[Rfam]
RNA sequence: GCGCGCCUACGCUGUCUACGCAUCCGCGCAGUCUGUACACCAGCCGCCCGCACCGACACGGGGCGGCACGGACCCAAGGA
Numbered sequence: 001g002c003g004c005g006c007c008u009a010c011g012c013u014g015u016c017u018a019c020g021c022a023u024c025c026g027c028g029c030a031g032u033c034u035g036u037a038c039a040c041c042a043g044c045c046g047c048c049c050g051c052a053c054c055g056a057c058a059c060g061g062g063g064c065g066g067c068a069c070g071g072a073c074c075c076a077a078g079g080a
Base pairs, nucleotide, nucleotide: 001029002028003027004026005025008022010020011019031073032072033071034070035069036068043067044066045065046064047063048062049061